[Rfam]
RNA sequence: GGGGUCGAUUUAGGAUUCGACGAGAUUCACGAAACCCUAGGUGCAUGUCGAGGGGCGGUUGGCCUCGUAAAAAGCCGCACUGUUAUAGUUGCAAACGACUCUAACCACACUCUAGCAGCUUAGGCUCGCUAGCCAUCAUUUAGAACCCUGCUUGAGGGUCCCUAAUAUUGUAUGGUCAUUAAAUAUCAAGAUCGCGUGGACUCUUCGCUCGUAGAGAAAGCGCUAAACACAAUCGAGCACGCUUUUGUUCGGCCUGUCACUCGGCUUAAUAAAAAGUUAAAUUAAUAGAGAUGACUAAACAUGUAGUACCGCGGAUGUAGGUUUUUCGGACGGGGGUUCAACUCCCCCCGACUCCACCA
Numbered sequence: 001g002g003g004g005u006c007g008a009u010u011u012a013g014g015a016u017u018c019g020a021c022g023a024g025a026u027u028c029a030c031g032a033a034a035c036c037c038u039a040g041g042u043g044c045a046u047g048u049c050g051a052g053g054g055g056c057g058g059u060u061g062g063c064c065u066c067g068u069a070a071a072a073a074g075c076c077g078c079a080c081u082g083u084u085a086u087a088g089u090u091g092c093a094a095a096c097g098a099c100u101c102u103a104a105c106c107a108c109a110c111u112c113u114a115g116c117a118g119c120u121u122a123g124g125c126u127c128g129c130u131a132g133c134c135a136u137c138a139u140u141u142a143g144a145a146c147c148c149u150g151c152u153u154g155a156g157g158g159u160c161c162c163u164a165a166u167a168u169u170g171u172a173u174g175g176u177c178a179u180u181a182a183a184u185a186u187c188a189a190g191a192u193c194g195c196g197u198g199g200a201c202u203c204u205u206c207g208c209u210c211g212u213a214g215a216g217a218a219a220g221c222g223c224u225a226a227a228c229a230c231a232a233u234c235g236a237g238c239a240c241g242c243u244u245u246u247g248u249u250c251g252g253c254c255u256g257u258c259a260c261u262c263g264g265c266u267u268a269a270u271a272a273a274a275a276g277u278u279a280a281a282u283u284a285a286u287a288g289a290g291a292u293g294a295c296u297a298a299a300c301a302u303g304u305a306g307u308a309c310c311g312c313g314g315a316u317g318u319a320g321g322u323u324u325u326u327c328g329g330a331c332g333g334g335g336g337u338u339c340a341a342c343u344c345c346c347c348c349c350g351a352c353u354c355c356a357c358c359a
Stems, first nucleotide, its partner, number of pairs: 001355007021328005028321001034316001036314002040310003044303005049067005055078006111132001117126003133175004140165004145159004151190005194223004207238005241277006248269002252265003256295004260290003332348005
RNA: transfer-messenger RNA